Rfam assigns this 59-nucleotide sequence from Ictalurus punctatus to the family "mir-8/mir-141/mir-200 microRNA precursor family". Lineage of the source: Eukaryota > Chordata > Gnathostomata > Actinopterygii > Ictalurus. The literature on the family includes a 2001 paper in Science by Lagos-Quintana et al., "Identification of novel genes coding for small expressed RNAs". The family has 164 seed sequences and 2,669 matches in Rfam 15.1.

[Rfam]
RNA sequence: CAUCUUACCUGACAGUGCUUGGCUGUUCACUGAUGUUCUAACACUGUCUGGUAACGAUG
Numbered sequence: 001c002a003u004c005u006u007a008c009c010u011g012a013c014a015g016u017g018c019u020u021g022g023c024u025g026u027u028c029a030c031u032g033a034u035g036u037u038c039u040a041a042c043a044c045u046g047u048c049u050g051g052u053a054a055c056g057a058u059g
Base pairs, nucleotide, nucleotide: 001059002058003057004056005054006053007052008051009050011048012047013046014045015044016043017042019040021038022037